The record is a 129-nucleotide sequence from Periweissella fabalis, which matches "FMN riboswitch aptamer (RFN element)" in Rfam.
Rfam 15.1 lists 6,230 matches to the family in 5,120 species.
[Rfam]
RNA sequence: AGAAAUCUUCAGGGCAGGGUGUAAUUCCCGACCGGCGGUAUAGUCCGCGACUUCAAUUAAGCUUUUUAAUUGAUUGAGCUGGUGUAAUUCCAGCACCGACAGUUAAAGUCUGGUAUGCAGAAGAUUGGU
Number, nucleotide and partner (000 for none) at each position: 001a000002g000003a000004a126005a125006u124007c123008u122009u121010c120011a000012g000013g000014g000015c000016a000017g029018g028019g027020u000021g000022u000023a000024a000025u000026u000027c019028c018029c017030g000031a109032c108033c098034g097035g048036c047037g046038g045039u000040a000041u000042a000043g096044u095045c038046c037047g036048c035049g000050a000051c000052u073053u072054c000055a000056a000057u000058u000059a000060a000061g000062c000063u000064u000065u000066u000067u000068a000069a000070u000071u000072g053073a052074u000075u000076g000077a000078g094079c093080u092081g091082g090083u000084g000085u000086a000087a000088u000089u000090c082091c081092a080093g079094c078095a044096c043097c034098g033099a000100c112101a111102g110103u000104u000105a000106a000107a000108g032109u031110c102111u101112g100113g000114u000115a000116u000117g000118c000119a000120g010121a009122a008123g007124a006125u005126u004127g000128g000129u000